[Rfam]
RNA sequence: CCGCGCUCUCUCCAUUACACUACCCUGCCUCUUCUCCACGAGAGGCAGCGGGGUGUAGUGGAUAGAGCACGGGU
Numbered sequence: 001c002c003g004c005g006c007u008c009u010c011u012c013c014a015u016u017a018c019a020c021u022a023c024c025c026u027g028c029c030u031c032u033u034c035u036c037c038a039c040g041a042g043a044g045g046c047a048g049c050g051g052g053g054u055g056u057a058g059u060g061g062a063u064a065g066a067g068c069a070c071g072g073g074u
Base pairs, nucleotide, nucleotide: 001072002071003070006067007066008065009064011062012061013060014059015058016057017056018055019054020053021052023051024050025048026047027046028045029044030043031042032041033040

This 74-nucleotide sequence from Bos taurus belongs to the Rfam family "mir-885 microRNA precursor family". Rfam's curators put it in the seed alignment.